[Rfam]
This 111-nucleotide RNA from Cohnella sp. AR92 belongs to the Rfam family "epsC RNA". Rfam classes the family as a cis-regulatory element. Taxonomically the source falls in Cohnella (Bacteria, Bacillota, Bacilli, Caryophanales).
RNA sequence: AGGAAAUGUCUCCUGCUCCUUUAUCACCGGAGGCACUCGGCCAUGCUGUGGGCCUGACGGCCUUAGACGUACAUCGUCAAGGGUGUGGCGAGAGGUUGGGUUCAAUGCCCA
Numbered sequence: 001a002g003g004a005a006a007u008g009u010c011u012c013c014u015g016c017u018c019c020u021u022u023a024u025c026a027c028c029g030g031a032g033g034c035a036c037u038c039g040g041c042c043a044u045g046c047u048g049u050g051g052g053c054c055u056g057a058c059g060g061c062c063u064u065a066g067a068c069g070u071a072c073a074u075c076g077u078c079a080a081g082g083g084u085g086u087g088g089c090g091a092g093a094g095g096u097u098g099g100g101u102u103c104a105a106u107g108c109c110c111a
Stems, first nucleotide, its partner, number of pairs: 001020004007035007036094003040089008050063005066078004097111005